[Rfam]
The record is a 79-nucleotide RNA from Tupaia belangeri, which matches "Small nucleolar RNA U105B" in Rfam.

RNA sequence: UACCGUGCGGUGAUGACAGUGCAGCUGCUGAGACGCUGUGAUUUCUCAGUCUCAAAGUAAACGCCCUGAGGCACGUGGG
Numbered sequence: 001u002a003c004c005g006u007g008c009g010g011u012g013a014u015g016a017c018a019g020u021g022c023a024g025c026u027g028c029u030g031a032g033a034c035g036c037u038g039u040g041a042u043u044u045c046u047c048a049g050u051c052u053c054a055a056a057g058u059a060a061a062c063g064c065c066c067u068g069a070g071g072c073a074c075g076u077g078g079g
Base pairs, nucleotide, nucleotide: 005074006073007072008071010020011018012017028049029048030047031046032045
Dot-bracket structure: ....((((.(((....)).).......(((((............))))).....................)))).....
Description: The organism belongs to Tupaia, within Eukaryota. Its Rfam clan is "SNORD105 clan". Rfam's curators put it in the seed alignment. A reference for the family is Yang et al. (2006), "snoSeeker: an advanced computational package for screening of guide and orphan snoRNA genes in the human genome", Nucleic Acids Res. The base pairs follow the family's consensus structure, which was predicted with WAR.